[Rfam]
RNA sequence: AAAAAGAAAAGAAAACGGUCCUUGAAGCCAAGCUGACUCUGCUGUGAGCCUUGCAAAGGAAGAGGUAGAUACAGCAGGUCUUGUUUGCAGAAUGAAUUCAAGACCUACUUGUCUACCAACAGCA
Numbered sequence: 001a002a003a004a005a006g007a008a009a010a011g012a013a014a015a016c017g018g019u020c021c022u023u024g025a026a027g028c029c030a031a032g033c034u035g036a037c038u039c040u041g042c043u044g045u046g047a048g049c050c051u052u053g054c055a056a057a058g059g060a061a062g063a064g065g066u067a068g069a070u071a072c073a074g075c076a077g078g079u080c081u082u083g084u085u086u087g088c089a090g091a092a093u094g095a096a097u098u099c100a101a102g103a104c105c106u107a108c109u110u111g112u113c114u115a116c117c118a119a120c121a122g123c124a
Stems, first nucleotide, its partner, number of pairs: 004052003010045001016041001017038004021032004064117008076106008
RNA: Small Cajal body specific RNA 15